This 96-nucleotide sequence from Prevotella sp. tc2-28 belongs to the Rfam family "TPP riboswitch aptamer (THI element)". Rfam links the family to the GO term thiamine pyrophosphate binding. NCBI's taxonomy places the organism under Bacteria, Bacteroidota, Bacteroidia, Bacteroidales, Prevotella. Pairs were carried over by alignment from the consensus structure, which is taken from published work. About the family: Vitamin B(1) in its active form thiamin pyrophosphate (TPP) is an essential coenzyme that is synthesised by coupling of pyrimidine and thiazole moieties in bacteria. A search with the family's covariance model found it, with a score of 69 bits.
[Rfam]
RNA sequence: GUGCUUGUCAAGGGGUGCUCACGGGUGUGGGCUGAGAUGAUACCCUCCAAACCUGAUACGGAUAAUGCCGGCGUAGGGAUGAUAGAGUAACUGAAC
Numbered sequence: 001g002u003g004c005u006u007g008u009c010a011a012g013g014g015g016u017g018c019u020c021a022c023g024g025g026u027g028u029g030g031g032c033u034g035a036g037a038u039g040a041u042a043c044c045c046u047c048c049a050a051a052c053c054u055g056a057u058a059c060g061g062a063u064a065a066u067g068c069c070g071g072c073g074u075a076g077g078g079a080u081g082a083u084a085g086a087g088u089a090a091c092u093g094a095a096c
Stems, first nucleotide, its partner, number of pairs: 006084005011046004016040001017032005052077004059070003